[Rfam]
RNA sequence: AAAAUGGAAGGCUAGGGUUCCGGUCGCAUAAGUUGCACGAGUAAAAGCAAUACGAGUGCAAGCAACACGAUGCGAUGUCUGGUCCGAGAGCUUUCGACCUUCGCCCCUCUCAGAAACAGAGUGAGGUGGCAGCUUACAUCAGCGAGCUAGCGCAAGUUAGCGGGCCAGUGAGGCCAACGUUCAGAUGGAAGGUUACACGGCGGGACAAAAGCCCGGGAGAC
Numbered sequence: 001a002a003a004a005u006g007g008a009a010g011g012c013u014a015g016g017g018u019u020c021c022g023g024u025c026g027c028a029u030a031a032g033u034u035g036c037a038c039g040a041g042u043a044a045a046a047g048c049a050a051u052a053c054g055a056g057u058g059c060a061a062g063c064a065a066c067a068c069g070a071u072g073c074g075a076u077g078u079c080u081g082g083u084c085c086g087a088g089a090g091c092u093u094u095c096g097a098c099c100u101u102c103g104c105c106c107c108u109c110u111c112a113g114a115a116a117c118a119g120a121g122u123g124a125g126g127u128g129g130c131a132g133c134u135u136a137c138a139u140c141a142g143c144g145a146g147c148u149a150g151c152g153c154a155a156g157u158u159a160g161c162g163g164g165c166c167a168g169u170g171a172g173g174c175c176a177a178c179g180u181u182c183a184g185a186u187g188g189a190a191g192g193u194u195a196c197a198c199g200g201c202g203g204g205a206c207a208a209a210a211g212c213c214c215g216g217g218a219g220a221c
Stems, first nucleotide, its partner, number of pairs: 007095006015085002020082002022079001023076006096194007196216001198219001202214003